[Rfam]
RNA: speF leader
RNA sequence: GGUCGGCCCUCCAAAGGCCGACGUGCUGAAGAGGCUUGUCUUUCUUGCCGGGCGUGCGGAUCGGGAAUCAUCCCCUUCCAAACGAUGGCCAUCCGUGAACGACGCGUAAGGCGCGAUCAACGCCUUUGCUCGUUUUCGUCUGGCCACGGCGCAUCGUCGGAUCGAAGUCUU
Numbered sequence: 001g002g003u004c005g006g007c008c009c010u011c012c013a014a015a016g017g018c019c020g021a022c023g024u025g026c027u028g029a030a031g032a033g034g035c036u037u038g039u040c041u042u043u044c045u046u047g048c049c050g051g052g053c054g055u056g057c058g059g060a061u062c063g064g065g066a067a068u069c070a071u072c073c074c075c076u077u078c079c080a081a082a083c084g085a086u087g088g089c090c091a092u093c094c095g096u097g098a099a100c101g102a103c104g105c106g107u108a109a110g111g112c113g114c115g116a117u118c119a120a121c122g123c124c125u126u127u128g129c130u131c132g133u134u135u136u137c138g139u140c141u142g143g144c145c146a147c148g149g150c151g152c153a154u155c156g157u158c159g160g161a162u163c164g165a166a167g168u169c170u171u
Stems, first nucleotide, its partner, number of pairs: 002022007033049003056152003078088001097135005